A member of the RNA family "Small nucleolar RNA SNORA75" from Ameiurus melas, 130 nucleotides long. From the family's description: U23 belongs to the H/ACA class of snoRNAs. snoRNAs bind a number of proteins (including dyskerin, Gar1p and Nop10p in the case of the H/ACA class) to form snoRNP complexes. This class are thought to guide the sites of modification of uridines to pseudouridines by forming direct base pairing interactions with substrate RNAs. Targets include ribosomal and spliceosomal RNAs as well as the Trypanosoma spliced leader RNA (SL RNA) as possibly other, still unknown cellular RNAs. U23 can direct the pseudouridylation of U97 in human 18S rRNA (Bachellerie JP, Ganot, P unpublished data).
RNA sequence: AUCUUCUCAUGAGCUCCUCUCUAUCUGAUGGUGAUGGAGCAUGGAUUCGCACGAGAAGUAGAUUCACACUCGCAUUACUACGAGUCUCUCCUCUAUGAUGGGAGUUGCUUAUGUCUGAUGUGAGACAGGU
Numbered sequence: 001a002u003c004u005u006c007u008c009a010u011g012a013g014c015u016c017c018u019c020u021c022u023a024u025c026u027g028a029u030g031g032u033g034a035u036g037g038a039g040c041a042u043g044g045a046u047u048c049g050c051a052c053g054a055g056a057a058g059u060a061g062a063u064u065c066a067c068a069c070u071c072g073c074a075u076u077a078c079u080a081c082g083a084g085u086c087u088c089u090c091c092u093c094u095a096u097g098a099u100g101g102g103a104g105u106u107g108c109u110u111a112u113g114u115c116u117g118a119u120g121u122g123a124g125a126c127a128g129g130u
Stems, first nucleotide, its partner, number of pairs: 003058006013050002015045003021037005070123006088104005
Lineage of the source: Eukaryota > Deuterostomia > Teleostomi > Ostariophysi > Ameiurus.